This 67-nucleotide RNA from Drosophila yakuba belongs to the Rfam family "mir-3 microRNA precursor family". Clan: mir-3 clan.
[Rfam]
RNA sequence: AUCCUGGGAUGCAUCUUGUGCAGUCAUGUUUCCAUCUCACAUCACUGGGCAAAGUGUGUCUCAAGAU
Numbered sequence: 001a002u003c004c005u006g007g008g009a010u011g012c013a014u015c016u017u018g019u020g021c022a023g024u025c026a027u028g029u030u031u032c033c034a035u036c037u038c039a040c041a042u043c044a045c046u047g048g049g050c051a052a053a054g055u056g057u058g059u060c061u062c063a064a065g066a067u
Base pairs, nucleotide, nucleotide: 005063006062007061008060009059010058011057012056013055014054017051018050019049021047022046023045024044

The family has 28 seed sequences and 52 matches in Rfam 15.1. Its family is annotated with RISC complex and miRNA-mediated post-transcriptional gene silencing in the Gene Ontology.